[Rfam]
RNA sequence: GGGGAAGCUGAUACAUGGGUAGAGUUGAACGGUGCUCUGUCCAUCACAAGUGUUCCCUAAAUCAAACAUGCUCUCUGAUGACCGGUGCGAAUUGAGAGAAAUUGCCACGGACAGAUACGGGGCAGACAAUA
Numbered sequence: 001g002g003g004g005a006a007g008c009u010g011a012u013a014c015a016u017g018g019g020u021a022g023a024g025u026u027g028a029a030c031g032g033u034g035c036u037c038u039g040u041c042c043a044u045c046a047c048a049a050g051u052g053u054u055c056c057c058u059a060a061a062u063c064a065a066a067c068a069u070g071c072u073c074u075c076u077g078a079u080g081a082c083c084g085g086u087g088c089g090a091a092u093u094g095a096g097a098g099a100a101a102u103u104g105c106c107a108c109g110g111a112c113a114g115a116u117a118c119g120g121g122g123c124a125g126a127c128a129a130u131a
Base pairs, nucleotide, nucleotide: 002057003056004055005054006053015044016043017042018041022037023036024035025034067125069124070123071122072121073120074119082110083109084108087105088104089103090102
Background: The family of this 131-nucleotide sequence from Danionella cerebrum is "Small Cajal body specific RNA 8". Rfam links the family to the GO terms Cajal body, RNA processing and nucleolus. Taxonomically the source falls in Danionella (Eukaryota, Metazoa, Neopterygii, Danioninae). It is annotated as a small Cajal body RNA. Rfam describes the family as follows. scaRNAs are a specific class of small nuclear RNAs which localise to the Cajal bodies and guide the modification of RNA polymerase II transcribed spliceosomal RNAs U1, U2, U4, U5 and U12.